[Rfam]
RNA sequence: UAAGUAAGAAGAAAAAUCUGAACAGACACUGGCCGCUUAAGUGCUGCAAGAUUCGCUAGAACUACGCUAGCGUCUCGGUCUUGUGCACAACGGUAAGCCAGUGGUCAUGUCAGCACAAUGAAGGAUAUGACCAUGUUGCUUUGACGAGUCGAACGCAAUACAUGCUAUUUAAGUGUAACCCAGAAUGAGUACAAAGAUCCGCUAUGACGAGCCUAACAUGCUAGUUAGUGCAAUGAGCGAUGUUACAGAAGUACGCCAUAAGAAACCUUGGGUACAAUCUGUUUCUAUUGCCAUUGCAAAACCUAGCAGGGAAUAGCUGGUAUCACACUUAGUAUUGUAUUUGUUAGUAGGCAUUGACAUCACGGCAUCGACAUGGAUACAC
Dot-bracket structure: ...............................................................................(((((........)))))...(((((((((((............)))))))))))...(((.((....(((....((((.....((((.....(((....((((..................((......))((................................................................................................)).....))))...)))...)))).......)))).....)))........)).)))................